[Rfam]
RNA sequence: CCGGCUCCGGUUCACGCCCGCGCGCAACGACGCGGGCGACCCGGCGGCC
Numbered sequence: 001c002c003g004g005c006u007c008c009g010g011u012u013c014a015c016g017c018c019c020g021c022g023c024g025c026a027a028c029g030a031c032g033c034g035g036g037c038g039a040c041c042c043g044g045c046g047g048c049c
Stems, first nucleotide, its partner, number of pairs: 003049003007044004015038008
This 49-nucleotide RNA sequence from Nakamurella multipartita belongs to the Rfam family "L31-Actinobacteria ribosomal protein leader".
Taxonomically the source falls in Nakamurella multipartita (Bacteria, Actinomycetota, Actinomycetes, Nakamurellaceae).
Rfam's curators put it in the seed alignment.
The base pairs follow the family's consensus structure, which is taken from published work.
The family's RNA type in Rfam is cis-regulatory leader.